[Rfam]
The record is a 264-nucleotide RNA sequence from Sulfitobacter sediminilitoris, which matches "Ruegeria trans44 sRNA" in Rfam. For this family Rfam cites "Experimental Identification of Small Non-Coding RNAs in the Model Marine Bacterium Ruegeria pomeroyi DSS-3" (Rivers et al., Front Microbiol, 2016). By type it is a small RNA. Taxonomically the source falls in Sulfitobacter (Bacteria, Pseudomonadota, Alphaproteobacteria, Roseobacteraceae).

RNA sequence: CAUCGCGAUGCUCUUCAAUGAAGGAGAGAUCGCGAUGAGGAUACUUUCGAAGCGUCAGCUGAAGGAGCUGGUUUUGUACUCGCCGCAACAUGUCGCACGUCUGGAGAAGGCAGGCCUAUUCCCCAAACGGGUACAGCUGGGCCCGAACCGGGUGGGUUGGGUUGAGGCUGAAGUGCUGGAGUGGCUCGAAGCACGGCUGGCCAAUCGGGACACCCCGCCCGACACUCCUGACUAAGGAGCAGGGUGGCCGAGGGUGCACACCUC
Numbered sequence: 001c002a003u004c005g006c007g008a009u010g011c012u013c014u015u016c017a018a019u020g021a022a023g024g025a026g027a028g029a030u031c032g033c034g035a036u037g038a039g040g041a042u043a044c045u046u047u048c049g050a051a052g053c054g055u056c057a058g059c060u061g062a063a064g065g066a067g068c069u070g071g072u073u074u075u076g077u078a079c080u081c082g083c084c085g086c087a088a089c090a091u092g093u094c095g096c097a098c099g100u101c102u103g104g105a106g107a108a109g110g111c112a113g114g115c116c117u118a119u120u121c122c123c124c125a126a127a128c129g130g131g132u133a134c135a136g137c138u139g140g141g142c143c144c145g146a147a148c149c150g151g152g153u154g155g156g157u158u159g160g161g162u163u164g165a166g167g168c169u170g171a172a173g174u175g176c177u178g179g180a181g182u183g184g185c186u187c188g189a190a191g192c193a194c195g196g197c198u199g200g201c202c203a204a205u206c207g208g209g210a211c212a213c214c215c216c217g218c219c220c221g222a223c224a225c226u227c228c229u230g231a232c233u234a235a236g237g238a239g240c241a242g243g244g245u246g247g248c249c250g251a252g253g254g255u256g257c258a259c260a261c262c263u264c
Stems, first nucleotide, its partner, number of pairs: 001037009012027005055200006065187006072180003077175004081170002083167002086164004091159002094156001096154003101150001103148001109143003113138003121131003202250001205247003219244002225239005251263003